[Rfam]
RNA: Small nucleolar RNA SNORA51
Nucleotides: 130
Base pairs, nucleotide, nucleotide: 002057003056004055005054006053007052008051022040023039024035027032072120073119074118075117084108085107088104089103090102091101092100093099
Number, partner (000 for none) and nucleotide at each position: 001000g002057g003056c004055c005054u006053c007052c008051u009000g010000a011000u012000g013000c014000u015000u016000a017000c018000c019000a020000c021000a022040a023039g024035u025000c026000a027032u028000u029000c030000u031000u032027a033000c034000a035024a036000u037000g038000a039023c040022u041000a042000u043000a044000u045000a046000g047000a048000a049000a050000a051008a052007g053006g054005a055004g056003g057002c058000a059000g060000a061000g062000u063000a064000a065000g066000u067000c068000u069000a070000c071000c072120c073119c074118a075117u076000g077000u078000a079000c080000a081000c082000c083000u084108c085107a086000a087000c088104u089103c090102a091101g092100g093099c094000c095000c096000u097000g098000u099093g100092c101091c102090u103089g104088g105000c106000c107085u108084g109000u110000g111000u112000u113000g114000u115000g116000a117075a118074u119073g120072g121000a122000a123000a124000g125000a126000c127000a128000u129000g130000g